[Rfam]
RNA: mir-2242 microRNA precursor family
RNA sequence: AGCUGAUGAACUUUGUAGUGUCCUCACUCGCUCAUUUCAUUCCGACACAAGAAAUGUGUUGGAAUGAAACGAGUGAGUCAGCAUCACCGUCUUUG
Numbered sequence: 001a002g003c004u005g006a007u008g009a010a011c012u013u014u015g016u017a018g019u020g021u022c023c024u025c026a027c028u029c030g031c032u033c034a035u036u037u038c039a040u041u042c043c044g045a046c047a048c049a050a051g052a053a054a055u056g057u058g059u060u061g062g063a064a065u066g067a068a069a070c071g072a073g074u075g076a077g078u079c080a081g082c083a084u085c086a087c088c089g090u091c092u093u094u095g
Stems, first nucleotide, its partner, number of pairs: 002094001005091004018087003023081002026078008035069015